[Rfam]
RNA sequence: ACGCAUACAUUUCGCACGAUUCGUAUAUCCUCAAUAAUAGGGUUUGGGGGUCUCUACAAGGAACCGUAAAUUCCUGGCUACGAAUGGGUGUCAUUGACAU
Numbered sequence: 001a002c003g004c005a006u007a008c009a010u011u012u013c014g015c016a017c018g019a020u021u022c023g024u025a026u027a028u029c030c031u032c033a034a035u036a037a038u039a040g041g042g043u044u045u046g047g048g049g050g051u052c053u054c055u056a057c058a059a060g061g062a063a064c065c066g067u068a069a070a071u072u073c074c075u076g077g078c079u080a081c082g083a084a085u086g087g088g089u090g091u092c093a094u095u096g097a098c099a100u
Stems, first nucleotide, its partner, number of pairs: 019085007029049006059075005
A member of the RNA family "Purine riboswitch aptamer" from Brevibacillus sp. WF146, 100 nucleotides long.